[Rfam]
RNA sequence: UCCGCCAACUCUGGAGAGCGGCGCUUCGAGCGCCCACCGAAGGGGCUAACGGACGACGCUCGCUCGAGCGGCGCGCCGGAAAAUCUCAGGUGACGGGACAGAGGGGUGUGU
Numbered sequence: 001u002c003c004g005c006c007a008a009c010u011c012u013g014g015a016g017a018g019c020g021g022c023g024c025u026u027c028g029a030g031c032g033c034c035c036a037c038c039g040a041a042g043g044g045g046c047u048a049a050c051g052g053a054c055g056a057c058g059c060u061c062g063c064u065c066g067a068g069c070g071g072c073g074c075g076c077c078g079g080a081a082a083a084u085c086u087c088a089g090g091u092g093a094c095g096g097g098a099c100a101g102a103g104g105g106g107u108g109u110g111u
Base pairs, nucleotide, nucleotide: 006106009103010102011101012100013099020034021033022032023031036091037090038089039087040086043085044084050078051077